[Rfam]
RNA sequence: CCCGUGGCAGGACGGAAAGACCCCGUGAAGCUUUACUGCAACCUGGCAUUGCCAUCUGGUCUGGACUGCGCAGGAUAGGUGGGAGCCUGGGAAGUCCACCCUCUGGGGUGGAUGGAGGCGCCGGUGAGAUACCACCCUGUCCAGAUUAGGUGGCUAACCUAGGGCACUGGAGCGUGCUCGGGGACAGUGUCAGGCGGGCAGUUUGACUGGGGCGGUCGCCUCCUAAAAGGUAACGGAGGCGCCCAAAGGUCCCCUCAGCGCGGUCGGCAAUCGCGCGUAGAGUGCAAGGGCAUAAGGGGGCUUGACUGCGAGACUGACAAGUCGAGCAGGUGGGAAACCAGGGCCUAGUGACCCGGCGGUUCUGAGUGGAAGGGCCGUCGAUCAACGGAUAAAAGCUACUCCGGGGAUAACAGGCUGAUCGGUCCCGAGAGCUCACAUCGACGGACCGGUUUGGCACCUCGAUGUCGGCUCGUCGCAUCCUGGGGCUGAAGCAGGUCCCAAGGGUUGGGCUGUUCGCCCAUUAAAGCGGCACGCGAGCUGGGUUCAGAACGUCGUGAGACAGUUCGGUCCCUAUCCGCCACGGGCGCA
Numbered sequence: 001c002c003c004g005u006g007g008c009a010g011g012a013c014g015g016a017a018a019g020a021c022c023c024c025g026u027g028a029a030g031c032u033u034u035a036c037u038g039c040a041a042c043c044u045g046g047c048a049u050u051g052c053c054a055u056c057u058g059g060u061c062u063g064g065a066c067u068g069c070g071c072a073g074g075a076u077a078g079g080u081g082g083g084a085g086c087c088u089g090g091g092a093a094g095u096c097c098a099c100c101c102u103c104u105g106g107g108g109u110g111g112a113u114g115g116a117g118g119c120g121c122c123g124g125u126g127a128g129a130u131a132c133c134a135c136c137c138u139g140u141c142c143a144g145a146u147u148a149g150g151u152g153g154c155u156a157a158c159c160u161a162g163g164g165c166a167c168u169g170g171a172g173c174g175u176g177c178u179c180g181g182g183g184a185c186a187g188u189g190u191c192a193g194g195c196g197g198g199c200a201g202u203u204u205g206a207c208u209g210g211g212g213c214g215g216u217c218g219c220c221u222c223c224u225a226a227a228a229g230g231u232a233a234c235g236g237a238g239g240c241g242c243c244c245a246a247a248g249g250u251c252c253c254c255u256c257a258g259c260g261c262g263g264u265c266g267g268c269a270a271u272c273g274c275g276c277g278u279a280g281a282g283u284g285c286a287a288g289g290g291c292a293u294a295a296g297g298g299g300g301c302u303u304g305a306c307u308g309c310g311a312g313a314c315u316g317a318c319a320a321g322u323c324g325a326g327c328a329g330g331u332g333g334g335a336a337a338c339c340a341g342g343g344c345c346u347a348g349u350g351a352c353c354c355g356g357c358g359g360u361u362c363u364g365a366g367u368g369g370a371a372g373g374g375c376c377g378u379c380g381a382u383c384a385a386c387g388g389a390u391a392a393a394a395g396c397u398a399c400u401c402c403g404g405g406g407a408u409a410a411c412a413g414g415c416u417g418a419u420c421g422g423u424c425c426c427g428a429g430a431g432c433u434c435a436c437a438u439c440g441a442c443g444g445a446c447c448g449g450u451u452u453g454g455c456a457c458c459u460c461g462a463u464g465u466c467g468g469c470u471c472g473u474c475g476c477a478u479c480c481u482g483g484g485g486c487u488g489a490a491g492c493a494g495g496u497c498c499c500a501a502g503g504g505u506u507g508g509g510c511u512g513u514u515c516g517c518c519c520a521u522u523a524a525a526g527c528g529g530c531a532c533g534c535g536a537g538c539u540g541g542g543u544u545c546a547g548a549a550c551g552u553c554g555u556g557a558g559a560c561a562g563u564u565c566g567g568u569c570c571c572u573a574u575c576c577g578c579c580a581c582g583g584g585c586g587c588a
Stems, first nucleotide, its partner, number of pairs: 001584008010576003014571002022405004027401002029397005035202004042194007051154016068137001078136005085119003094113008158182003162179006205217004218240006241386001243343002249301006255281002258276006282291002306329004312323003331340003354380007362373002414455003418452001419449007429439002466541001467539004471533001472530005479504002482499006506520005547565004551560003